The family of this 87-nucleotide sequence from Callaeas wilsoni is "mir-191 microRNA precursor family".
[Rfam]
RNA sequence: GGCGCCAGCGCGGGCAACGGAAUCCCAAAAGCAGCUGUCCCCGCUGUGCCCAGCUGCCCUGGGGUUUCGUUACCCGCGCUCCCGCCC
Numbered sequence: 001g002g003c004g005c006c007a008g009c010g011c012g013g014g015c016a017a018c019g020g021a022a023u024c025c026c027a028a029a030a031g032c033a034g035c036u037g038u039c040c041c042c043g044c045u046g047u048g049c050c051c052a053g054c055u056g057c058c059c060u061g062g063g064g065u066u067u068c069g070u071u072a073c074c075c076g077c078g079c080u081c082c083c084g085c086c087c
Base pairs, nucleotide, nucleotide: 009078010077011076012075013074017070018069019068020067021066022065023064024063025062028060031057032056033055034054035053036052037051